A member of the RNA family "Transposase-2 RNA" from Nocardia speluncae, 72 nucleotides long.
By type it is a small RNA.
The organism belongs to Nocardia, within Bacteria.
The match comes from Rfam's covariance-model search (61 bits).
RNA sequence: GAAACGUCAACCCGGCACAACCCACAUCGGGUUGAUCAGACCGGGACCGUCGUCUCGCAAGGGACGGCUGCC
Numbered sequence: 001g002a003a004a005c006g007u008c009a010a011c012c013c014g015g016c017a018c019a020a021c022c023c024a025c026a027u028c029g030g031g032u033u034g035a036u037c038a039g040a041c042c043g044g045g046a047c048c049g050u051c052g053u054c055u056c057g058c059a060a061g062g063g064a065c066g067g068c069u070g071c072c
Base pairs, nucleotide, nucleotide: 011045012044013043014042015041018034019033020032021031022030049068050067051066052065053064054063055062056061